[Rfam]
Listeria sRNA rli34: an 84-nucleotide RNA sequence from Aquingentivirus A500. It scores 76 bits against the family's covariance model. On this family, see Toledo-Arana et al., Nature 2009: "The Listeria transcriptional landscape from saprophytism to virulence".
Nucleotides: 084
Base pairs, nucleotide, nucleotide: 006028007027008026009025010024011023064075065074066073
Number, partner (000 for none) and nucleotide at each position: 001000u002000a003000g004000a005000u006028u007027u008026a009025u010024u011023c012000u013000u014000a015000c016000a017000c018000a019000a020000u021000u022000u023011g024010a025009g026008u027007a028006a029000c030000a031000u032000u033000g034000u035000g036000u037000u038000u039000u040000u041000a042000g043000u044000c045000a046000c047000a048000a049000a050000a051000u052000a053000u054000u055000a056000c057000a058000c059000a060000a061000c062000a063000c064075g065074a066073g067000u068000u069000a070000u071000u072000a073066u074065u075064c076000a077000u078000u079000a080000u081000u082000u083000a084000u